Shown here is a 266-nucleotide RNA sequence from Candidatus Kuenenia stuttgartensis, a member of the family "Bacterial large signal recognition particle RNA". Pairs were carried over by alignment from the consensus structure, which is taken from published work. A search with the family's covariance model found it, with a score of 175 bits. The signal recognition particle (SRP) is a universally conserved ribonucleoprotein involved in the co-translational targeting of proteins to membranes.
[Rfam]
Nucleotides: 266
Stems, first nucleotide, its partner, number of pairs: 001266006009058003012030004017025003035055005064259005070253001073251001075249003080244001083241006093232002096229006104222002106219003114214009123202006129193002132191004140183001142181002150175004158167003
Number, partner (000 for none) and nucleotide at each position: 001266c002265c003264g004263u005262g006261c007000u008000a009058g010057a011056u012030g013029g014028g015027g016000a017025g018024c019023u020000a021000g022000c023019g024018g025017u026000a027015c028014c029013c030012u031000g032000u033000a034000a035055c036054c037053u038052g039051c040000a041000a042000c043000c044000c045000g046000c047000u048000a049000u050000a051039g052038c053037a054036g055035g056011a057010u058009u059000g060000a061000u062000c063000g064259c065258u066257u067256u068255u069000c070253u071000g072000a073251g074000g075249g076248c077247u078000c079000a080244c081000g082000a083241c084240u085239g086238u087237u088236a089000u090000c091000u092000u093232u094231g095000u096229c097228a098227a099226u100225g101224u102000a103000a104222g105221u106219g107218g108217u109000g110000a111000u112000g113000a114214a115213g116212g117211u118210u119209g120208g121207a122206u123202c124201u125200c126199a127198u128197g129193c130192a131000a132191u133190g134189g135188g136000a137000g138000a139000c140183g141000a142181u143180g144000c145000g146000a147000a148000u149000c150175u151174g152173g153172u154000c155000a156000g157000a158167u159166g160165c161000g162000g163000a164000a165160g166159c167158a168000a169000g170000c171000a172153g173152c174151c175150a176000u177000a178000a179000a180143c181142a182000c183140u184000u185000g186000u187000c188135c189134u190133c191132a192130u193129g194000u195000g196000c197128c198127g199126u200125g201124a202123g203000u204000u205000a206122g207121u208120c209119u210118g211117g212116c213115c214114u215000g216000a217108g218107c219106u220000a221105a222104c223000u224101g225100c226099a227098u228097u229096g230000g231094u232093a233000a234000a235000c236088u237087a238086a239085c240084a241083g242000a243000a244080g245000g246000g247077g248076g249075c250000a251073c252000g253070a254000a255068a256067a257066a258065a259064g260000u261006g262005c263004a264003c265002g266001g